[Rfam]
RNA: RNase MRP
Organism: Steccherinum ochraceum
RNA sequence: GCGUCGACAGAAGAACCGCCAUCGCAGCUCACACACAGGGAGUCCCUUCACCAAGGGCACUCCUUCCUUCUAGCUGUGGGGAAAGUCCCCGGAGAUGCAGAGACACGCCUUCUUCCCAUUCCUCACCGGAAAUCGGCCAUCCUUAAGCACGAUGGGUCCGGGAGGGAGGCGGCCAGGAUACCGUGCUUCGUGGUCUUCGAAAGAAGACUGCGAGCUACGCCAGGCUACCUCUGCGGCUCGUUUUUCUGUGCUUGGCACCCCAUAAAACGGCGCGAGGGACGCGAAGAUACGAGCGGUCUUUCGCGUUUGGGGUGUUGGGUGCGGACGGGCUAUCGUUGCUCAUAGACAUAGUUAUGCGGUUGCGGAUCCCCUUGCUGGGGAUUCGUUUACAGAAUGGGGCUCACUCCCUAUCGACG
Numbered sequence: 001g002c003g004u005c006g007a008c009a010g011a012a013g014a015a016c017c018g019c020c021a022u023c024g025c026a027g028c029u030c031a032c033a034c035a036c037a038g039g040g041a042g043u044c045c046c047u048u049c050a051c052c053a054a055g056g057g058c059a060c061u062c063c064u065u066c067c068u069u070c071u072a073g074c075u076g077u078g079g080g081g082a083a084a085g086u087c088c089c090c091g092g093a094g095a096u097g098c099a100g101a102g103a104c105a106c107g108c109c110u111u112c113u114u115c116c117c118a119u120u121c122c123u124c125a126c127c128g129g130a131a132a133u134c135g136g137c138c139a140u141c142c143u144u145a146a147g148c149a150c151g152a153u154g155g156g157u158c159c160g161g162g163a164g165g166g167a168g169g170c171g172g173c174c175a176g177g178a179u180a181c182c183g184u185g186c187u188u189c190g191u192g193g194u195c196u197u198c199g200a201a202a203g204a205a206g207a208c209u210g211c212g213a214g215c216u217a218c219g220c221c222a223g224g225c226u227a228c229c230u231c232u233g234c235g236g237c238u239c240g241u242u243u244u245u246c247u248g249u250g251c252u253u254g255g256c257a258c259c260c261c262a263u264a265a266a267a268c269g270g271c272g273c274g275a276g277g278g279a280c281g282c283g284a285a286g287a288u289a290c291g292a293g294c295g296g297u298c299u300u301u302c303g304c305g306u307u308u309g310g311g312g313u314g315u316u317g318g319g320u321g322c323g324g325a326c327g328g329g330c331u332a333u334c335g336u337u338g339c340u341c342a343u344a345g346a347c348a349u350a351g352u353u354a355u356g357c358g359g360u361u362g363c364g365g366a367u368c369c370c371c372u373u374g375c376u377g378g379g380g381a382u383u384c385g386u387u388u389a390c391a392g393a394a395u396g397g398g399g400c401u402c403a404c405u406c407c408c409u410a411u412c413g414a415c416g
Stems, first nucleotide, its partner, number of pairs: 002416006009409002014361006022079007040062004045057004084401002087399004193208006255322006262315002268311001279306004289299001291297001362386009